[Rfam]
RNA sequence: AGGGCAGAUUGGGCAGUCGCGGUAUCUCUUUGAGAUGUCGAGGAAGGUCCGGACUCCACAGGACAGGAUAACGGCUAACGGCCGUCCGGCGGUGCAUGCGGGUUCGCCUGAAUGUAUGAGACCGAGGAAUAGGACCACAGAGACGAGACUUCUGCGUGGGUCGUGCGCGCAAGCGCCCGACAUCGAUACGGCUAUCUCCGUAUGGCGUCGAUCGCAAGAUCGGCAACGCAGAAGGGUGAAACGCGGCAACCUCUAUCCGGAGCAACACCAAAUAGGCGUACGUGACGGCUUCGGCUGUCGUAGGGCGGUUCCGUCCGAGUGCGCGGGUAGGUGGCUAGACCAGGUCAGCAAUGGCUUGGCCAGAGGAAUGAUUGCCUGCCGGGGUGACCCGGUAUACAGAAUCCGGCCUAUAGAUCUGCUCUGCUU
Numbered sequence: 001a002g003g004g005c006a007g008a009u010u011g012g013g014c015a016g017u018c019g020c021g022g023u024a025u026c027u028c029u030u031u032g033a034g035a036u037g038u039c040g041a042g043g044a045a046g047g048u049c050c051g052g053a054c055u056c057c058a059c060a061g062g063a064c065a066g067g068a069u070a071a072c073g074g075c076u077a078a079c080g081g082c083c084g085u086c087c088g089g090c091g092g093u094g095c096a097u098g099c100g101g102g103u104u105c106g107c108c109u110g111a112a113u114g115u116a117u118g119a120g121a122c123c124g125a126g127g128a129a130u131a132g133g134a135c136c137a138c139a140g141a142g143a144c145g146a147g148a149c150u151u152c153u154g155c156g157u158g159g160g161u162c163g164u165g166c167g168c169g170c171a172a173g174c175g176c177c178c179g180a181c182a183u184c185g186a187u188a189c190g191g192c193u194a195u196c197u198c199c200g201u202a203u204g205g206c207g208u209c210g211a212u213c214g215c216a217a218g219a220u221c222g223g224c225a226a227c228g229c230a231g232a233a234g235g236g237u238g239a240a241a242c243g244c245g246g247c248a249a250c251c252u253c254u255a256u257c258c259g260g261a262g263c264a265a266c267a268c269c270a271a272a273u274a275g276g277c278g279u280a281c282g283u284g285a286c287g288g289c290u291u292c293g294g295c296u297g298u299c300g301u302a303g304g305g306c307g308g309u310u311c312c313g314u315c316c317g318a319g320u321g322c323g324c325g326g327g328u329a330g331g332u333g334g335c336u337a338g339a340c341c342a343g344g345u346c347a348g349c350a351a352u353g354g355c356u357u358g359g360c361c362a363g364a365g366g367a368a369u370g371a372u373u374g375c376c377u378g379c380c381g382g383g384g385u386g387a388c389c390c391g392g393u394a395u396a397c398a399g400a401a402u403c404c405g406g407c408c409u410a411u412a413g414a415u416c417u418g419c420u421c422u423g424c425u426u
Base pairs, nucleotide, nucleotide: 001422002421003420004419005418006417007416008415009414010413011411012376013375014374015373016372017371018370020040021039022038023037024036025035026034027033028032045409046408047407049406050405051404052403053402054262055261056260057259061311062310063309064308066258067257068256069255070254071085072084073083074082075081086126087124088123089122127253128252132251133250135246136245149235150234151232152231153230154229155228156227157226159224266333267332268331269330276324277323278322279321280320281319303316304315305314306313340359341358342357343356344355345354346353347352